[Rfam]
RNA sequence: AUUUCCUGGGGAUCUUGUUAAAACGCAGAUUCGGAUUCAGUAGCUCAAGGUGGGGCCUGAGAUUCUACAUUUCUAACAAGCUCCCAGGUGAUGUGGA
Numbered sequence: 001a002u003u004u005c006c007u008g009g010g011g012a013u014c015u016u017g018u019u020a021a022a023a024c025g026c027a028g029a030u031u032c033g034g035a036u037u038c039a040g041u042a043g044c045u046c047a048a049g050g051u052g053g054g055g056c057c058u059g060a061g062a063u064u065c066u067a068c069a070u071u072u073c074u075a076a077c078a079a080g081c082u083c084c085c086a087g088g089u090g091a092u093g094u095g096g097a
Base pairs, nucleotide, nucleotide: 003090005088009084010083011082014080015079016078017077018076019075020074021072022071023070025068027066028065029064031062032061
Notes
Rfam assigns this 97-nucleotide RNA sequence from Tursiops truncatus to the family "mir-544 microRNA precursor family". Lineage of the source: Eukaryota > Craniata > Gnathostomata > Odontoceti > Tursiops. Gene Ontology terms of the family: RISC complex and miRNA-mediated post-transcriptional gene silencing. It scores 72 bits against the family's covariance model. For this family Rfam cites "Mammalian microRNAs: experimental evaluation of novel and previously annotated genes" (Chiang et al., Genes Dev, 2010).